[Rfam]
RNA sequence: GCUUUCUCCCCUGUUCGCAGCAGGGGGUUAAGCGAGCGCCGCCAGGGACCCCAAGACCCUGGUGGCGCUCAUUUCUUUGCGGU
Numbered sequence: 001g002c003u004u005u006c007u008c009c010c011c012u013g014u015u016c017g018c019a020g021c022a023g024g025g026g027g028u029u030a031a032g033c034g035a036g037c038g039c040c041g042c043c044a045g046g047g048a049c050c051c052c053a054a055g056a057c058c059c060u061g062g063u064g065g066c067g068c069u070c071a072u073u074u075c076u077u078u079g080c081g082g083u
Stems, first nucleotide, its partner, number of pairs: 001033003006027003010024004035069013
A member of the RNA family "ctRNA" from Gordonia malaquae, 83 nucleotides long. Rolling circle replication plasmids contain a number of mechanisms to maintain a low copy number. One of these methods is to transcribe a small RNA called ctRNA (for counter-transcribed RNA) than is transcribed on the opposite strand to RepB the replication initiation protein. ctRNA binds to the mRNA of repB and causes translational inhibition. A search with the family's covariance model found it, with a score of 55 bits.